[Rfam]
RNA sequence: ACGAGGUGAUGACCUAUGAAUUGACAGCCAGUGAUUCACCACCUGCCUGUCAGUUCUGUAGGCCACUGCUGCGU
Numbered sequence: 001a002c003g004a005g006g007u008g009a010u011g012a013c014c015u016a017u018g019a020a021u022u023g024a025c026a027g028c029c030a031g032u033g034a035u036u037c038a039c040c041a042c043c044u045g046c047c048u049g050u051c052a053g054u055u056c057u058g059u060a061g062g063c064c065a066c067u068g069c070u071g072c073g074u
Stems, first nucleotide, its partner, number of pairs: 001074003005070004010065002013062004018056010029045003
Record summary:
This 74-nucleotide RNA sequence from Echeneis naucrates belongs to the Rfam family "mir-192/215 microRNA precursor family". For this family Rfam cites "New microRNAs from mouse and human" (Lagos-Quintana et al., RNA, 2003). Rfam's curators write: This family represents the human microRNA (miRNA) precursors mir-192 and mir-215.